The record is an 81-nucleotide RNA sequence from Oscillibacter valericigenes, which matches "pemK RNA" in Rfam. Rfam's curators put it in the seed alignment.
RNA sequence: ACAAUGAUACUUCCGCCCAGCCACAGUUUCAUGCAAUGUGGGCGGCUCGGAGAGAUCCUCGGAGGGGUUGGAUUCCCAUGA
Number, nucleotide and partner (000 for none) at each position: 001a000002c000003a000004a000005u000006g000007a000008u000009a000010c000011u000012u078013c045014c044015g043016c042017c041018c040019a039020g000021c000022c000023a000024c000025a000026g000027u000028u000029u000030c000031a000032u000033g000034c000035a000036a000037u000038g000039u019040g018041g017042g016043c015044g014045g013046c064047u063048c062049g000050g060051a059052g058053a000054g000055a000056u000057c000058c052059u051060c050061g000062g048063a047064g046065g077066g076067g075068u000069u000070g000071g000072a000073u000074u000075c067076c066077c065078a012079u000080g000081a000

The organism belongs to Oscillibacter valericigenes, within Bacteria. The family's RNA type in Rfam is cis-regulatory element.